Shown here is a 254-nucleotide part of an RNA from Thermoplasmatales archaeon SCGC AB-539-C06, a member of the family "Archaeal large subunit ribosomal RNA". NCBI's taxonomy places the organism under Archaea, Methanobacteriati, Thermoplasmatota, Thermoplasmata, Thermoplasmatales. It scores 2750 bits against the family's covariance model. Its Rfam clan is "LSU clan".
RNA sequence: GAGUUCCGGGUAAUGGCGAGAUUAAGGAUGAAGAAUCCGUAAUCGUAGCGAAAGCAAAUGUCCGCAGGCAACAAGGGACAGGGUGUGCUCGCCUGUAGUCAUUACUUAGAGACCCGAAGCCAGUCGAUCUAUGCGUGGCCAGGUUGAAGCCCUGUGAAAACGGGGUGGAGGACCGAACAGGUACUGAUGUGCAAAUCGUUCUGAUGAGCUGCGUAUAGGGGCAAAAGACCAAUCUAGACUGGUAAUAGCUGGUU
Numbered sequence: 001g002a003g004u005u006c007c008g009g010g011u012a013a014u015g016g017c018g019a020g021a022u023u024a025a026g027g028a029u030g031a032a033g034a035a036u037c038c039g040u041a042a043u044c045g046u047a048g049c050g051a052a053a054g055c056a057a058a059u060g061u062c063c064g065c066a067g068g069c070a071a072c073a074a075g076g077g078a079c080a081g082g083g084u085g086u087g088c089u090c091g092c093c094u095g096u097a098g099u100c101a102u103u104a105c106u107u108a109g110a111g112a113c114c115c116g117a118a119g120c121c122a123g124u125c126g127a128u129c130u131a132u133g134c135g136u137g138g139c140c141a142g143g144u145u146g147a148a149g150c151c152c153u154g155u156g157a158a159a160a161c162g163g164g165g166u167g168g169a170g171g172a173c174c175g176a177a178c179a180g181g182u183a184c185u186g187a188u189g190u191g192c193a194a195a196u197c198g199u200u201c202u203g204a205u206g207a208g209c210u211g212c213g214u215a216u217a218g219g220g221g222c223a224a225a226a227g228a229c230c231a232a233u234c235u236a237g238a239c240u241g242g243u244a245a246u247a248g249c250u251g252g253u254u
Stems, first nucleotide, its partner, number of pairs: 005110002008107010020044004026038004048055002060079004067072001082093004113252002116249001120242006129218011140206001142174004149166007178203004183199002186197002220230002